FMN riboswitch aptamer (RFN element): a 141-nucleotide RNA sequence from Vibrio sp. V28_P6S34P95. A search with the family's covariance model found it, with a score of 118 bits.
RNA sequence: UACAAUUCUCAGGGCGGGGUGGAAUUCCCCACCGGUGGUAUACCCGAUUGGGUGAGCCCACGAGCGCUCGAUUCGUCGAGGUCAGCAGAUCUGGUGAGACGCCAGAGCCGACGGUUAUAGUCCGGAUGAGAGAGAAUGGCA
Numbered sequence: 001u002a003c004a005a006u007u008c009u010c011a012g013g014g015c016g017g018g019g020u021g022g023a024a025u026u027c028c029c030c031a032c033c034g035g036u037g038g039u040a041u042a043c044c045c046g047a048u049u050g051g052g053u054g055a056g057c058c059c060a061c062g063a064g065c066g067c068u069c070g071a072u073u074c075g076u077c078g079a080g081g082u083c084a085g086c087a088g089a090u091c092u093g094g095u096g097a098g099a100c101g102c103c104a105g106a107g108c109c110g111a112c113g114g115u116u117a118u119a120g121u122c123c124g125g126a127u128g129a130g131a132g133a134g135a136a137u138g139g140c141a
Stems, first nucleotide, its partner, number of pairs: 003139001005137006017029003031121002033110002035061004056108002064086002090106005112124003